Rfam assigns this 171-nucleotide RNA from Streptomyces albus to the family "Actinobacteria sRNA Ms_IGR-5". The source organism's lineage runs through Bacteria, Actinomycetota, Streptomycetaceae, Streptomyces albus and Streptomyces albus subsp. albus. By type it is a small RNA. The literature on the family includes a 2013 paper in RNA by Li et al., "Identification of small RNAs in Mycobacterium smegmatis using heterologous Hfq".

RNA sequence: ACACGAGAAGGGAGGUGGUUCGGCAGAUGUAUGCAUACCGGACGCGUGAGGUGGCUGAGGGUCCACGCUCCUAGCGCUGGCCCCAUUCCACGCAGUCACCCGACCCGCGGGCCGCCGGUACGUCCGGCCGGCUCCCUCCCCGGAGGGACCAAGGCCCGCGGGUCGUCUGCG
Numbered sequence: 001a002c003a004c005g006a007g008a009a010g011g012g013a014g015g016u017g018g019u020u021c022g023g024c025a026g027a028u029g030u031a032u033g034c035a036u037a038c039c040g041g042a043c044g045c046g047u048g049a050g051g052u053g054g055c056u057g058a059g060g061g062u063c064c065a066c067g068c069u070c071c072u073a074g075c076g077c078u079g080g081c082c083c084c085a086u087u088c089c090a091c092g093c094a095g096u097c098a099c100c101c102g103a104c105c106c107g108c109g110g111g112c113c114g115c116c117g118g119u120a121c122g123u124c125c126g127g128c129c130g131g132c133u134c135c136c137u138c139c140c141c142g143g144a145g146g147g148a149c150c151a152a153g154g155c156c157c158g159c160g161g162g163u164c165g166u167c168u169g170c171g
Stems, first nucleotide, its partner, number of pairs: 016057004060083002063080003101165013114132006